[Rfam]
RNA: tRNA
RNA sequence: GGAUCGAUAGCUCAGUGGUAUGAGCGAGGGAUUGCAGAUCCUUAGGUCGCGUGUUCGAUCCACGCUCGGUCCU
Numbered sequence: 001g002g003a004u005c006g007a008u009a010g011c012u013c014a015g016u017g018g019u020a021u022g023a024g025c026g027a028g029g030g031a032u033u034g035c036a037g038a039u040c041c042u043u044a045g046g047u048c049g050c051g052u053g054u055u056c057g058a059u060c061c062a063c064g065c066u067c068g069g070u071c072c073u
Stems, first nucleotide, its partner, number of pairs: 001072007010025004027043005049065005